[Rfam]
RNA sequence: AUCCUACUACAUGUGGCAUGUGAGGUAUCAAAUUGUGAGUGGAUACAUAAGAUAGGUGAGAUAAAUCAUCAUUAAUAUGUAUUCACUCACAAUUUGACACCUCACAUUCCACAUGU
Numbered sequence: 001a002u003c004c005u006a007c008u009a010c011a012u013g014u015g016g017c018a019u020g021u022g023a024g025g026u027a028u029c030a031a032a033u034u035g036u037g038a039g040u041g042g043a044u045a046c047a048u049a050a051g052a053u054a055g056g057u058g059a060g061a062u063a064a065a066u067c068a069u070c071a072u073u074a075a076u077a078u079g080u081a082u083u084c085a086c087u088c089a090c091a092a093u094u095u096g097a098c099a100c101c102u103c104a105c106a107u108u109c110c111a112c113a114u115g116u
Stems, first nucleotide, its partner, number of pairs: 020105004025100002029096003033092004038087003